[Rfam]
RNA sequence: GCAUCUGAAUCUUUUCCACUCCUUGCAGUAUAGUGCUGGAUUGGAGAUACAGGAUGCAACAGGAAAGCAGAGGGAAUCCAGACAAGCUCCCUUUCCCCACAGUGGGACUUGUCUCUACACCUUUGCAACAUUU
Dot-bracket structure: (((((.......((((((..((...............))..)))))).....))))).........((((((.......(((((((.......((........))..)))))))......)))))).......